[Rfam]
Small nucleolar RNA snoR27: a 99-nucleotide sequence from Theobroma umbraticum. Taxonomically the source falls in Theobroma (Eukaryota, Viridiplantae, eudicotyledons, rosids). The family's RNA type in Rfam is C/D-box small nucleolar RNA. The family has 6 seed sequences and 649 matches in Rfam 15.1. Rfam links the family to the GO terms RNA processing and nucleolus. The base pairs follow the family's consensus structure, which was predicted with WAR. It scores 60 bits against the family's covariance model. On this family, see Brown et al., RNA 2001: "Multiple snoRNA gene clusters from Arabidopsis".

RNA sequence: UUUGGAUCAAAGAUGUUUAUUUUAUUCUGCGUUAUCUAUCUGAUAGUACUUUCUCUGAAAGGAAAUGGAGAUAACACUAAUCACAUACUGAGAUCAAGU
Numbered sequence: 001u002u003u004g005g006a007u008c009a010a011a012g013a014u015g016u017u018u019a020u021u022u023u024a025u026u027c028u029g030c031g032u033u034a035u036c037u038a039u040c041u042g043a044u045a046g047u048a049c050u051u052u053c054u055c056u057g058a059a060a061g062g063a064a065a066u067g068g069a070g071a072u073a074a075c076a077c078u079a080a081u082c083a084c085a086u087a088c089u090g091a092g093a094u095c096a097a098g099u
Stems, first nucleotide, its partner, number of pairs: 002098002005095003